[Rfam]
RNA sequence: AUUUUCAUAGGUGAUGAAGUUUGCCUUUAAACAUCUCUUAGAAGAUUAAUGAUUUCUACUAUAAA
Numbered sequence: 001a002u003u004u005u006c007a008u009a010g011g012u013g014a015u016g017a018a019g020u021u022u023g024c025c026u027u028u029a030a031a032c033a034u035c036u037c038u039u040a041g042a043a044g045a046u047u048a049a050u051g052a053u054u055u056c057u058a059c060u061a062u063a064a065a
Stems, first nucleotide, its partner, number of pairs: 010025004016056006033046004
This 65-nucleotide RNA from Clostridium saccharobutylicum belongs to the Rfam family "Fluoride riboswitch aptamer (crcB RNA motif)". Lineage of the source: Bacteria > Bacillati > Clostridia > Clostridiaceae > Clostridium saccharobutylicum. Gene Ontology terms of the family: response to fluoride and positive regulation of gene expression. Rfam 15.1 lists 2,293 matches to the family in 1,982 species.